[Rfam]
RNA sequence: ACAGAUGACUCGGGAGAACCGGAUGUUUCCGGUGCCGAAGGAGCAACCGCCCCGGAAACUCUCAGGCCGCAGGGACCGCGCCAUCUGA
Numbered sequence: 001a002c003a004g005a006u007g008a009c010u011c012g013g014g015a016g017a018a019c020c021g022g023a024u025g026u027u028u029c030c031g032g033u034g035c036c037g038a039a040g041g042a043g044c045a046a047c048c049g050c051c052c053c054g055g056a057a058a059c060u061c062u063c064a065g066g067c068c069g070c071a072g073g074g075a076c077c078g079c080g081c082c083a084u085c086u087g088a
Stems, first nucleotide, its partner, number of pairs: 006083002009080001011078003019032004034067003037063002041061003047055002
Glycine riboswitch aptamer: an 88-nucleotide sequence from Shimia aestuarii. About the family: This family represents the bacterial glycine riboswitch. Glycine riboswitches usually consist of two metabolite-binding aptamers domains with similar structures in tandem. The aptamers cooperatively bind glycine to regulate the expression of downstream genes. Clan: Glycine riboswitch clan.